[Rfam]
RNA: Bacterial RNase P class A
Organism: Candidatus Parepulonipiscium sp. PG-Nun2H_MBin03
RNA sequence: UAAGUAAGUCAGAUAGUCGCAAGCACAUAUUGUGUUUGAGGAACGUCCGGGCUCCAUAGAGCAAAGGUGCUGGAUAACACCCAGUGGAGGCGACUCUAAGGAAAGUGCAACAGAAAUAGACCACCUGUAUAUUGCAGGAAAGGAUGGAAAGGCGAGGUAAGAGCUCACCGUGUUCUAGGUGACUAGAAUAGCCAUGUAAACCCCACCUGGAGCAAGACCACAACAAGACAUAAUUGCUGCUCGCAAGUCUUAGGGUAGGUUGCUAAAGUGUUUAGGUAACUAAAAACUUAGAUAGAUGACUAUCAAAUACAGAACCCGGCGUAUAGAUUUGGUUAUAGA
Numbered sequence: 001u002a003a004g005u006a007a008g009u010c011a012g013a014u015a016g017u018c019g020c021a022a023g024c025a026c027a028u029a030u031u032g033u034g035u036u037u038g039a040g041g042a043a044c045g046u047c048c049g050g051g052c053u054c055c056a057u058a059g060a061g062c063a064a065a066g067g068u069g070c071u072g073g074a075u076a077a078c079a080c081c082c083a084g085u086g087g088a089g090g091c092g093a094c095u096c097u098a099a100g101g102a103a104a105g106u107g108c109a110a111c112a113g114a115a116a117u118a119g120a121c122c123a124c125c126u127g128u129a130u131a132u133u134g135c136a137g138g139a140a141a142g143g144a145u146g147g148a149a150a151g152g153c154g155a156g157g158u159a160a161g162a163g164c165u166c167a168c169c170g171u172g173u174u175c176u177a178g179g180u181g182a183c184u185a186g187a188a189u190a191g192c193c194a195u196g197u198a199a200a201c202c203c204c205a206c207c208u209g210g211a212g213c214a215a216g217a218c219c220a221c222a223a224c225a226a227g228a229c230a231u232a233a234u235u236g237c238u239g240c241u242c243g244c245a246a247g248u249c250u251u252a253g254g255g256u257a258g259g260u261u262g263c264u265a266a267a268g269u270g271u272u273u274a275g276g277u278a279a280c281u282a283a284a285a286a287c288u289u290a291g292a293u294a295g296a297u298g299a300c301u302a303u304c305a306a307a308u309a310c311a312g313a314a315c316c317c318g319g320c321g322u323a324u325a326g327a328u329u330u331g332g333u334u335a336u337a338g339a
Base pairs, nucleotide, nucleotide: 001335002334003333005331006330007329008328009327010326011324012304013303014302015301016300017299018298020038021037022036023035024034025033026032027031043322044321045320047319048318049317050316051315052212053211054210055209061241065208066207067206068205069204070084071083072082073081085099086097087096088095089094100203101202105201106200107197108196109195121143122142124138125137126136127135128134129133151169152168154166155165156164170192171190172189173188174187175186176185177184178183216261217260218259219258225251226250227249228248229247234246235245236244237243268287269286271284272283273282274281275280